[Rfam]
RNA sequence: GGGUUUUACUCCUGGAUGUUACCGGUUCAUCCGGCCGGAGCCGGACGCAAUUUGGUGUCUGAUUCGGUAUGAAUCGGGAGCACCUCUGCGUAGGCUUGGGAAUACUCCAUCUUUUAAGACUUGCGUCGCCUACGGUCUUGGAUAGCCCCCGCCAGGCAGGGACCCCAAUUUCUAGCCUGGCCCGCUCUCACGGGCCA
Numbered sequence: 001g002g003g004u005u006u007u008a009c010u011c012c013u014g015g016a017u018g019u020u021a022c023c024g025g026u027u028c029a030u031c032c033g034g035c036c037g038g039a040g041c042c043g044g045a046c047g048c049a050a051u052u053u054g055g056u057g058u059c060u061g062a063u064u065c066g067g068u069a070u071g072a073a074u075c076g077g078g079a080g081c082a083c084c085u086c087u088g089c090g091u092a093g094g095c096u097u098g099g100g101a102a103u104a105c106u107c108c109a110u111c112u113u114u115u116a117a118g119a120c121u122u123g124c125g126u127c128g129c130c131u132a133c134g135g136u137c138u139u140g141g142a143u144a145g146c147c148c149c150c151g152c153c154a155g156g157c158a159g160g161g162a163c164c165c166c167a168a169u170u171u172c173u174a175g176c177c178u179g180g181c182c183c184g185c186u187c188u189c190a191c192g193g194g195c196c197a
Stems, first nucleotide, its partner, number of pairs: 002165002005162003011156004024048001028047001030045006054084005059077007088152003093147004113142009179196006

Shown here is a 197-nucleotide RNA sequence from Pseudomonas sp. ABC1, a member of the family "Pseudomonas sRNA P27". NCBI's taxonomy places the organism under Bacteria, Gammaproteobacteria, Pseudomonadales, Pseudomonadaceae, Pseudomonas. It scores 146 bits against the family's covariance model.